[Rfam]
RNA sequence: UGCCCCUUGGCAAAAAUGAAAGCCGUGAAUGGCAUCGGCCAGUACCUUGCGUGGAAAACCGAUGAGGCUGACAAAGAG
Numbered sequence: 001u002g003c004c005c006c007u008u009g010g011c012a013a014a015a016a017u018g019a020a021a022g023c024c025g026u027g028a029a030u031g032g033c034a035u036c037g038g039c040c041a042g043u044a045c046c047u048u049g050c051g052u053g054g055a056a057a058a059c060c061g062a063u064g065a066g067g068c069u070g071a072c073a074a075a076g077a078g
Base pairs, nucleotide, nucleotide: 001012002011003010004009021069022068023067024066033064034063035062036061037060038059045053
RT-18 RNA: a 78-nucleotide RNA. By type it is a small RNA. Rfam's curators put it in the seed alignment.